[Rfam]
RNA: Nuclear RNase P
Organism: Colletotrichum tofieldiae
RNA sequence: UCCUCUUCAACGCUGCGUUUCUAUGCUACAAACGGAGAGAUUCGCGCGCAAGCAAGAAUCUCUCAUCACUGGCAUAUGAGAAAUUCGGAGUAACUUCUUCACACCACUCACCCAAUGUCGCCUGCCUAGUGCGGGAUAGACGGGUCUGCCCGCGAGGGCCUGGCGUGACUUCACGUCUGCAAUUGGCAUCAGAAAAGCAGGGCCCGGGCCGCCCUCAUGCAUACCCGGAAUCCCUUUCGGGGGGUGCCGGGGAAGAUGGGGUUCUUGGACUCGGUGUCCCUAUGGGAGAGCCGUUGCGAAAAGAUUGUGCAGAGCACUUGAGUGCGAUACGCAGCGUCUGGACCCUGGCCGGCUUCGGCUGGCCAGGGGCUUGACAAUUCAAUUCCGAUCAUUCUGUUGAGGA
Numbered sequence: 001u002c003c004u005c006u007u008c009a010a011c012g013c014u015g016c017g018u019u020u021c022u023a024u025g026c027u028a029c030a031a032a033c034g035g036a037g038a039g040a041u042u043c044g045c046g047c048g049c050a051a052g053c054a055a056g057a058a059u060c061u062c063u064c065a066u067c068a069c070u071g072g073c074a075u076a077u078g079a080g081a082a083a084u085u086c087g088g089a090g091u092a093a094c095u096u097c098u099u100c101a102c103a104c105c106a107c108u109c110a111c112c113c114a115a116u117g118u119c120g121c122c123u124g125c126c127u128a129g130u131g132c133g134g135g136a137u138a139g140a141c142g143g144g145u146c147u148g149c150c151c152g153c154g155a156g157g158g159c160c161u162g163g164c165g166u167g168a169c170u171u172c173a174c175g176u177c178u179g180c181a182a183u184u185g186g187c188a189u190c191a192g193a194a195a196a197g198c199a200g201g202g203c204c205c206g207g208g209c210c211g212c213c214c215u216c217a218u219g220c221a222u223a224c225c226c227g228g229a230a231u232c233c234c235u236u237u238c239g240g241g242g243g244g245u246g247c248c249g250g251g252g253a254a255g256a257u258g259g260g261g262u263u264c265u266u267g268g269a270c271u272c273g274g275u276g277u278c279c280c281u282a283u284g285g286g287a288g289a290g291c292c293g294u295u296g297c298g299a300a301a302a303g304a305u306u307g308u309g310c311a312g313a314g315c316a317c318u319u320g321a322g323u324g325c326g327a328u329a330c331g332c333a334g335c336g337u338c339u340g341g342a343c344c345c346u347g348g349c350c351g352g353c354u355u356c357g358g359c360u361g362g363c364c365a366g367g368g369g370c371u372u373g374a375c376a377a378u379u380c381a382a383u384u385c386c387g388a389u390c391a392u393u394c395u396g397u398u399g400a401g402g403a
Stems, first nucleotide, its partner, number of pairs: 001403004008396002012335007022076004035064009086387005094312002097309001148159004162177005179308006200292002336375003340371002